[Rfam]
RNA sequence: GUAGGUUAGGCCGAGUAGGAGACGAAAGCUGAGCACAAUGAGGAAGGAGGGCGCGACCUUCGGCCGUAGCGCCGUGAAUACGCACCCCGCGCAGACGUGCGGACGCUUCUUGCAUGGCCGUUGGCUUCGGCGUUCAACGCGGUUUCAUGCACGAUCUGCAAGCGGCUACCCGAACGCCACUGAAAGCCGUGCGGGUGCCUCCAUGAACUCCGAGGAGC
Numbered sequence: 001g002u003a004g005g006u007u008a009g010g011c012c013g014a015g016u017a018g019g020a021g022a023c024g025a026a027a028g029c030u031g032a033g034c035a036c037a038a039u040g041a042g043g044a045a046g047g048a049g050g051g052c053g054c055g056a057c058c059u060u061c062g063g064c065c066g067u068a069g070c071g072c073c074g075u076g077a078a079u080a081c082g083c084a085c086c087c088c089g090c091g092c093a094g095a096c097g098u099g100c101g102g103a104c105g106c107u108u109c110u111u112g113c114a115u116g117g118c119c120g121u122u123g124g125c126u127u128c129g130g131c132g133u134u135c136a137a138c139g140c141g142g143u144u145u146c147a148u149g150c151a152c153g154a155u156c157u158g159c160a161a162g163c164g165g166c167u168a169c170c171c172g173a174a175c176g177c178c179a180c181u182g183a184a185a186g187c188c189g190u191g192c193g194g195g196u197g198c199c200u201c202c203a204u205g206a207a208c209u210c211c212g213a214g215g216a217g218c
Stems, first nucleotide, its partner, number of pairs: 005034003061074004082198004087194004091159005096153005105113002116144006162190005
RT-2 RNA: a 218-nucleotide sequence. It is one of the family's seed sequences. By type it is a small RNA.